[Rfam]
RNA sequence: UACUCAGCAUAUUUGAUAGUAUGCGGUUUAAUAUAAUUGGUUUUACCAAUUAAAGAAAGAGUAG
Dot-bracket structure: .((((.(((((((....))))))).........(((((((.....)))))))......))))..